[Rfam]
RNA sequence: GAAGUCCAAUACAGGGAAAAAAUAGCGAACUCACUCUGGCCCCGAGUCAUGCGUUGCACACCGCGAUGUGUGGAUCGAAGCGUUGACAGGGGAGACCAGCAGGCCAGCCAUUGAGCCGCGAAAUCAUUCAAUCGGGGUGCCCAUGGUGUUGCUAUGCCAGAAGGCAACACGCAGCAUGACGUCAAUCGCAAGACAUGCUGUGACCCCGCGCGGUCUGAGACCC
Number, nucleotide and partner (000 for none) at each position: 001g000002a000003a000004g000005u000006c000007c000008a000009a000010u000011a000012c038013a037014g036015g035016g034017a000018a000019a000020a031021a000022a000023u191024a000025g189026c188027g000028a000029a000030c000031u020032c000033a000034c016035u015036c014037u013038g012039g000040c092041c091042c090043c089044g000045a000046g087047u086048c085049a084050u082051g081052c077053g076054u000055u074056g000057c072058a071059c070060a069061c068062c000063g000064c000065g000066a000067u000068g061069u060070g059071u058072g057073g000074a055075u000076c053077g052078a000079a000080g000081c051082g050083u000084u049085g048086a047087c046088a000089g043090g042091g041092g040093a000094g000095a000096c000097c000098a000099g000100c000101a000102g000103g000104c000105c000106a000107g000108c000109c000110a000111u000112u217113g215114a000115g214116c213117c212118g211119c210120g209121a000122a000123a000124u000125c000126a000127u000128u000129c000130a000131a000132u000133c208134g207135g206136g205137g204138u203139g165140c164141c163142c000143a000144u159145g158146g157147u156148g000149u000150u000151g000152c000153u000154a000155u000156g147157c146158c145159a144160g000161a000162a000163g141164g140165c139166a000167a000168c000169a000170c202171g201172c200173a199174g198175c197176a196177u195178g194179a000180c192181g000182u000183c000184a000185a000186u000187c000188g026189c025190a000191a023192g180193a000194c178195a177196u176197g175198c174199u173200g172201u171202g170203a138204c137205c136206c135207c134208g133209c120210g119211c118212g117213g116214u115215c113216u000217g112218a000219g000220a000221c000222c000223c000

This 223-nucleotide RNA sequence from Burkholderiales bacterium PBB3 belongs to the Rfam family "Group II catalytic intron D1-D4-6". From the family's description: Group II introns are found in rRNA, tRNA and mRNA of organelles in fungi, plants and protists, and also in mRNA in bacteria. It scores 167 bits against the family's covariance model.